[Rfam]
Source information:
The record is a 496-nucleotide part of an RNA from Puccinia coronata, which matches "Archaeal large subunit ribosomal RNA" in Rfam. Taxonomically the source falls in Puccinia coronata var. avenae (Eukaryota, Fungi, Pucciniomycetes, Pucciniaceae). Rfam 15.1 lists 2,955 matches to the family in 1,139 species.
RNA sequence: CCUGCCGAAGUUUCCCUCAGGAUAGCAAAGACUCGUAUCAGUUUUAUGAGGUAAAGCAAAUGAUUAGAGGCCUUGGGGAUGAAACAUCCUUAACCUAUUCUCAAACUUUAAAUAUGUAAGACGCUCCUGUUUCUUAAUUGAACGUGGGCAUGUGAAUGAGAGUCUUUAGUGGGCCAUUUCUGGUAAGCAGAACUGGCGAUGCGGGAUGAACCGAACAUGAGGUUAAGGUGCCGGAAUAUACACUCAUCAGAAACUACAAAAGGUGUUAGUUCAUCUAGACAGCCGCACGGUGGCCAUGGAAGUCGGAAUCCGCUAAGGAGUGUGUAACAACUCAACGGCCGAAUGAACUAGCCCUGAAAAUGGAUGGCGCUUAAAUGUAUUACCCAUACCUCACCAUUAAUAUUGUUUUCAUUACAUAUUAAUGAGUAGGCAGGCGUGGAGGUUAUGUAGCGAAGCCUUGGCAGUGAUGCUGGGUGGAACAGCCUCUAGUGCAGAU
Numbered sequence: 001c002c003u004g005c006c007g008a009a010g011u012u013u014c015c016c017u018c019a020g021g022a023u024a025g026c027a028a029a030g031a032c033u034c035g036u037a038u039c040a041g042u043u044u045u046a047u048g049a050g051g052u053a054a055a056g057c058a059a060a061u062g063a064u065u066a067g068a069g070g071c072c073u074u075g076g077g078g079a080u081g082a083a084a085c086a087u088c089c090u091u092a093a094c095c096u097a098u099u100c101u102c103a104a105a106c107u108u109u110a111a112a113u114a115u116g117u118a119a120g121a122c123g124c125u126c127c128u129g130u131u132u133c134u135u136a137a138u139u140g141a142a143c144g145u146g147g148g149c150a151u152g153u154g155a156a157u158g159a160g161a162g163u164c165u166u167u168a169g170u171g172g173g174c175c176a177u178u179u180c181u182g183g184u185a186a187g188c189a190g191a192a193c194u195g196g197c198g199a200u201g202c203g204g205g206a207u208g209a210a211c212c213g214a215a216c217a218u219g220a221g222g223u224u225a226a227g228g229u230g231c232c233g234g235a236a237u238a239u240a241c242a243c244u245c246a247u248c249a250g251a252a253a254c255u256a257c258a259a260a261a262g263g264u265g266u267u268a269g270u271u272c273a274u275c276u277a278g279a280c281a282g283c284c285g286c287a288c289g290g291u292g293g294c295c296a297u298g299g300a301a302g303u304c305g306g307a308a309u310c311c312g313c314u315a316a317g318g319a320g321u322g323u324g325u326a327a328c329a330a331c332u333c334a335a336c337g338g339c340c341g342a343a344u345g346a347a348c349u350a351g352c353c354c355u356g357a358a359a360a361u362g363g364a365u366g367g368c369g370c371u372u373a374a375a376u377g378u379a380u381u382a383c384c385c386a387u388a389c390c391u392c393a394c395c396a397u398u399a400a401u402a403u404u405g406u407u408u409u410c411a412u413u414a415c416a417u418a419u420u421a422a423u424g425a426g427u428a429g430g431c432a433g434g435c436g437u438g439g440a441g442g443u444u445a446u447g448u449a450g451c452g453a454a455g456c457c458u459u460g461g462c463a464g465u466g467a468u469g470c471u472g473g474g475u476g477g478a479a480c481a482g483c484c485u486c487u488a489g490u491g492c493a494g495a496u
Base pairs, nucleotide, nucleotide: 001434002433003432004431005430006429011024013022014021015020026169027167028166029165030164031163032162038159039158040157043156044155045154046153047152048151054145056143062139063138064137065136066135067133068132069131070130071129075127076126077125078124080123173197174196175195176194178192179191180190181189202213203212204211218393219392220391221390222389223388227384228383229382236381238380239379240378241377242376261355262354263353265352266351267350268349269348270347271346272345273344274343282339283338284337285336288312289311290310294306295305313317318333322331323330395424396423399420400419401418402417403416435491437488438487439486440485441484442483443482444481446479455475456474457473458472460471461470462469463468